[Rfam]
This 120-nucleotide RNA from Syntrophotalea carbinolica belongs to the Rfam family "Molybdenum/Tungsten riboswitch aptamer (Moco RNA motif)". Lineage of the source: Bacteria > Thermodesulfobacteriota > Desulfuromonadales > Syntrophotaleaceae > Syntrophotalea carbinolica. It scores 65 bits against the family's covariance model. Rfam links the family to the GO terms tungstate binding, molybdenum ion binding and regulation of gene expression.
RNA sequence: AAUACUACCAAUCUCCGAGCCUCGCUGCCUACUGGGAAGGUCCUUAUGGCGACAGGCCGACGGGUUCCGCUGGAAACAGUGGCGCCUCCCUUUUUGGAAAGGAGAUUUUACCCGGAACCA
Number, nucleotide and partner (000 for none) at each position: 001a000002a000003u114004a000005c000006u000007a000008c000009c000010a000011a106012u105013c104014u103015c102016c101017g000018a000019g057020c056021c055022u054023c000024g000025c051026u000027g050028c049029c048030u000031a000032c000033u000034g044035g043036g042037a000038a000039g000040g000041u000042c036043c035044u034045u000046a000047u000048g029049g028050c027051g025052a000053c000054a022055g021056g020057c019058c000059g000060a000061c000062g087063g086064g085065u084066u000067c082068c081069g080070c079071u078072g077073g000074a000075a000076a000077c072078a071079g070080u069081g068082g067083c000084g065085c064086c063087u062088c097089c096090c000091u000092u000093u000094u000095u000096g089097g088098a000099a000100a000101g016102g015103a014104g013105a012106u011107u000108u000109u000110a000111c000112c000113c000114g003115g000116a000117a000118c000119c000120a000